[Rfam]
RNA sequence: UAUAAUAUAGCCGAUUAAUAAGGCGUAAAAUUAUUAAUUUUAAAGAAUUAAGUUCGAUUCUUAAUAUUAUAA
Numbered sequence: 001u002a003u004a005a006u007a008u009a010g011c012c013g014a015u016u017a018a019u020a021a022g023g024c025g026u027a028a029a030a031u032u033a034u035u036a037a038u039u040u041u042a043a044a045g046a047a048u049u050a051a052g053u054u055c056g057a058u059u060c061u062u063a064a065u066a067u068u069a070u071a072a
Base pairs, nucleotide, nucleotide: 001071002070003069004068005067006066007065010024011023012022026042027041028040029039030038048064049063050062051061052060

Rfam assigns this 72-nucleotide RNA sequence from Monosporascus ibericus to the family "tRNA". Gene Ontology term of the family: triplet codon-amino acid adaptor activity. The organism belongs to Monosporascus, within Eukaryota. A search with the family's covariance model found it, with a score of 50 bits. The family's RNA type in Rfam is transfer RNA.